[Rfam]
RNA: Glycine riboswitch aptamer
RNA sequence: CUCUGGAGAGAGCCUAUUGAAGGCCACCAAAGGGGAAUACUUCUUUAUGGAAGUUAAACUCUCAGGUAACAGGACAGAG
Numbered sequence: 001c002u003c004u005g006g007a008g009a010g011a012g013c014c015u016a017u018u019g020a021a022g023g024c025c026a027c028c029a030a031a032g033g034g035g036a037a038u039a040c041u042u043c044u045u046u047a048u049g050g051a052a053g054u055u056a057a058a059c060u061c062u063c064a065g066g067u068a069a070c071a072g073g074a075c076a077g078a079g
Stems, first nucleotide, its partner, number of pairs: 001079005012024004026067003030062001033061003039054004